[Rfam]
RNA: tRNA
RNA sequence: GUGGGCGUGGCGGAAUUGGUAGACGCCGGGGACUUAAAAUCCCCUGAGCUUUGCUCGUGCGGGUUCGAGUCCCGCCGCCCGCA
Numbered sequence: 001g002u003g004g005g006c007g008u009g010g011c012g013g014a015a016u017u018g019g020u021a022g023a024c025g026c027c028g029g030g031g032a033c034u035u036a037a038a039a040u041c042c043c044c045u046g047a048g049c050u051u052u053g054c055u056c057g058u059g060c061g062g063g064u065u066c067g068a069g070u071c072c073c074g075c076c077g078c079c080c081g082c083a
Base pairs, nucleotide, nucleotide: 001082002081003080004079005078006077007076010026011025012024028044029043030042031041032040059075060074061073062072063071